[Rfam]
The family of this 133-nucleotide RNA from Salarias fasciatus is "Small nucleolar RNA SNORA75". Rfam classes the family as an H/ACA-box small nucleolar RNA. U23 belongs to the H/ACA class of snoRNAs. snoRNAs bind a number of proteins (including dyskerin, Gar1p and Nop10p in the case of the H/ACA class) to form snoRNP complexes. This class are thought to guide the sites of modification of uridines to pseudouridines by forming direct base pairing interactions with substrate RNAs. Targets include ribosomal and spliceosomal RNAs as well as the Trypanosoma spliced leader RNA (SL RNA) as possibly other, still unknown cellular RNAs. U23 can direct the pseudouridylation of U97 in human 18S rRNA (Bachellerie JP, Ganot, P unpublished data). U23 is encoded within intron 12 of the nucleolin gene in human, mouse, rat chicken, and Xenopus laevis. Pairs were carried over by alignment from the consensus structure, which was predicted with PFOLD. NCBI's taxonomy places the organism under Eukaryota, Bilateria, Gnathostomata, Eurypterygia, Salarias. Rfam links the family to the GO terms RNA processing and nucleolus.
RNA sequence: ACCUUCUCAUGAGCUCCUCUUAAUCAUACUAGUGAUUUUGUAUGGAUUCGCACGAGAAGCAGAGAAAUGCACAGUUAAACAAGCUUGCCCUGUUUGCAUGUGGGUGUUGGCUCAUGUCUGCUGUGCUACAUGU
Number, nucleotide and partner (000 for none) at each position: 001a000002c000003c059004u058005u057006c056007u055008c054009a000010u000011g000012a000013g051014c050015u046016c045017c044018u000019c000020u000021u000022a037023a036024u035025c034026a000027u000028a000029c000030u000031a000032g000033u000034g025035a024036u023037u022038u000039u000040g000041u000042a000043u000044g017045g016046a015047u000048u000049c000050g014051c013052a000053c000054g008055a007056g006057a005058a004059g003060c000061a000062g000063a000064g000065a000066a000067a000068u000069g126070c125071a124072c123073a122074g121075u000076u000077a000078a000079a000080c000081a000082a000083g000084c000085u000086u000087g000088c000089c100090c000091u098092g097093u000094u000095u000096g000097c092098a091099u000100g089101u000102g000103g000104g000105u000106g000107u000108u000109g000110g000111c000112u000113c000114a000115u000116g000117u000118c000119u000120g000121c074122u073123g072124u071125g070126c069127u000128a000129c000130a000131u000132g000133u000